Rfam assigns this 92-nucleotide RNA from Hymenobacter roseosalivarius to the family "SAM riboswitch aptamer (S box leader)".
NCBI's taxonomy places the organism under Bacteria, Pseudomonadati, Bacteroidota, Cytophagales, Hymenobacter roseosalivarius.
The match comes from Rfam's covariance-model search (77 bits).
The base pairs follow the family's consensus structure, which is taken from published work.
[Rfam]
Nucleotides: 092
Base pairs, nucleotide, nucleotide: 001092002091003090004089005088006087007086008085013042014041015040016039017038021031022030023029025080026079027078028077043072044071045070046069048068049067051063052062053061076084
Number, partner (000 for none) and nucleotide at each position: 001092u002091u003090u004089u005088u006087a007086u008085a009000a010000a011000g012000a013042g014041g015040c016039g017038u018000g019000g020000a021031g022030a023029g024000a025080c026079a027078g028077g029023c030022u031021c032000g033000a034000c035000g036000a037000a038017a039016c040015g041014c042013c043072g044071g045070c046069a047000a048068c049067c050000c051063c052062c053061a054000g055000c056000a057000c058000a059000a060000c061053u062052g063051g064000a065000a066000c067049g068048g069046u070045g071044c072043c073000a074000a075000g076084u077028c078027c079026u080025g081000a082000c083000c084076a085008u086007a087006u088005a089004a090003a091002a092001a